RNA sequence: AAGAAAUGUAGCAUGCUCGUUAUGAUUACUCUGAUUAUUUUGUGUUAUUACUAUUUAAGUAAUUUUGGGAAACGGGGUGUUACAAUUGG
Numbered sequence: 001a002a003g004a005a006a007u008g009u010a011g012c013a014u015g016c017u018c019g020u021u022a023u024g025a026u027u028a029c030u031c032u033g034a035u036u037a038u039u040u041u042g043u044g045u046u047a048u049u050a051c052u053a054u055u056u057a058a059g060u061a062a063u064u065u066u067g068g069g070a071a072a073c074g075g076g077g078u079g080u081u082a083c084a085a086u087u088g089g
Base pairs, nucleotide, nucleotide: 004087005086007084008083009082010081011080012079013078014077016076017075018074019073020072021071

The record is an 89-nucleotide RNA sequence from Medicago truncatula, which matches "MIR2617 microRNA precursor family" in Rfam. The source organism's lineage runs through Eukaryota, Gunneridae, Pentapetalae, Papilionoideae and Medicago. Its family is annotated with miRNA-mediated post-transcriptional gene silencing and RISC complex in the Gene Ontology. The family's consensus secondary structure was predicted with RNAalifold.